[Rfam]
RNA sequence: GGUAUUUGAGGUGGUCAAUUUCGUGGCAGCCACACGCCGACGGUAACGACAAGGGCAGCUGCCCUGAGAGAUGCAGGAGAACGCCACGCCUGCCAAAUACC
Number, nucleotide and partner (000 for none) at each position: 001g101002g100003u099004a098005u097006u096007u095008g094009a000010g000011g033012u032013g031014g030015u029016c000017a000018a000019u000020u000021u000022c000023g087024u086025g085026g084027c083028a000029g015030c014031c013032a012033c011034a000035c068036g044037c043038c042039g000040a000041c000042g038043g037044u036045a000046a000047c000048g000049a000050c000051a000052a000053g000054g000055g000056c000057a000058g000059c000060u000061g000062c000063c000064c000065u000066g000067a000068g035069a000070g000071a000072u000073g093074c092075a091076g090077g089078a000079g000080a000081a000082c000083g027084c026085c025086a024087c023088g000089c077090c076091u075092g074093c073094c008095a007096a006097a005098u004099a003100c002101c001
RNA: skipping-rope RNA